[Rfam]
RNA sequence: GAUAGCCGUAAAUAAUGGCUGGAUUUAGAGUUGGCGCUGUGACGAUUCGCACUGUUUGUGAUGCUGCAUCGUAAAGCCCGCCCCAGUACAUAGCUUUAGCCACCAAUAACAACGCUCCGAAACCCAAAAAUAGCAGAUGGUGCCCUAAAAUUAGCCCCAACUGCUUGGGGUCAUUCCA
Numbered sequence: 001g002a003u004a005g006c007c008g009u010a011a012a013u014a015a016u017g018g019c020u021g022g023a024u025u026u027a028g029a030g031u032u033g034g035c036g037c038u039g040u041g042a043c044g045a046u047u048c049g050c051a052c053u054g055u056u057u058g059u060g061a062u063g064c065u066g067c068a069u070c071g072u073a074a075a076g077c078c079c080g081c082c083c084c085a086g087u088a089c090a091u092a093g094c095u096u097u098a099g100c101c102a103c104c105a106a107u108a109a110c111a112a113c114g115c116u117c118c119g120a121a122a123c124c125c126a127a128a129a130a131u132a133g134c135a136g137a138u139g140g141u142g143c144c145c146u147a148a149a150a151u152u153a154g155c156c157c158c159a160a161c162u163g164c165u166u167g168g169g170g171u172c173a174u175u176c177c178a
Stems, first nucleotide, its partner, number of pairs: 136175006144169005
The record is a 178-nucleotide RNA from Leptolyngbyaceae cyanobacterium JSC-12, which matches "Antisense RNA which regulates isiA expression" in Rfam. Taxonomically the source falls in Leptolyngbyaceae (Bacteria, Bacillati, Cyanophyceae, Leptolyngbyales). For this family Rfam cites "An internal antisense RNA regulates expression of the photosynthesis gene isiA" (Duhring et al., Proc Natl Acad Sci U S A, 2006). Pairs were carried over by alignment from the consensus structure, which was predicted with PFOLD.